[Rfam]
RNA: mir-2807 microRNA precursor family
RNA sequence: UUAAAUCAAAUUUGUACGGGAUUGGAACGUUUGCCUACGUUUGCCGCUAGGGGCGCUGUUCCAACUGCAUACUAAUUUGAGUUA
Numbered sequence: 001u002u003a004a005a006u007c008a009a010a011u012u013u014g015u016a017c018g019g020g021a022u023u024g025g026a027a028c029g030u031u032u033g034c035c036u037a038c039g040u041u042u043g044c045c046g047c048u049a050g051g052g053g054c055g056c057u058g059u060u061c062c063a064a065c066u067g068c069a070u071a072c073u074a075a076u077u078u079g080a081g082u083u084a
Base pairs, nucleotide, nucleotide: 008078009077010076011075012074014072015071016070018068020066022064023063024062025061026060027059028058029057034052035051036050039047040046